[Rfam]
RNA sequence: GUGCAUGUCAGACCACCGUCUCCCUCUUUAGCUGUAGGGAGUGACGGUGUCUAAGAAAACAUGCAAGAUUAACACUGCCUGGAGUUCACAGGGCCAUCGAUCUUACAGAGUUGAUCAAUUGGUAGUAUCAGACUCCUACAAAG
Number, nucleotide and partner (000 for none) at each position: 001g000002u000003g064004c063005a062006u061007g060008u059009c000010a000011g000012a000013c000014c000015a000016c047017c046018g045019u044020c043021u000022c000023c039024c038025u000026c000027u000028u000029u000030a000031g000032c000033u000034g000035u000036a000037g000038g024039g023040a000041g000042u000043g020044a019045c018046g017047g016048u000049g000050u000051c000052u000053a000054a000055g000056a000057a000058a000059a008060c007061a006062u005063g004064c003065a000066a000067g000068a000069u000070u000071a000072a000073c000074a000075c000076u000077g000078c000079c000080u000081g136082g135083a134084g133085u000086u000087c000088a000089c000090a000091g000092g000093g123094c122095c000096a000097u000098c000099g116100a115101u114102c113103u000104u000105a000106c000107a000108g000109a000110g000111u000112u000113g102114a101115u100116c099117a000118a000119u000120u000121g000122g094123u093124a000125g000126u000127a000128u000129c000130a000131g000132a000133c084134u083135c082136c081137u000138a000139c000140a000141a000142a000143g000